[Rfam]
RNA sequence: UGUUACUAAACCCUGUCUCCACCUCCACGUGGUGAUCGCUGGGAGUUCUUUCUUUAUGAAAAAGGUGAGGGAGGGAGAAGG
Dot-bracket structure: ...........(((.(.((((((.......))).............(((((.(.....).))))).......))).).)))
Notes
The record is an 81-nucleotide RNA from Hermetia illucens, which matches "drz-agam-1 ribozyme" in Rfam. A search with the family's covariance model found it, with a score of 40 bits. Taxonomically the source falls in Hermetia (Eukaryota, Metazoa, Panarthropoda, Altocrustacea).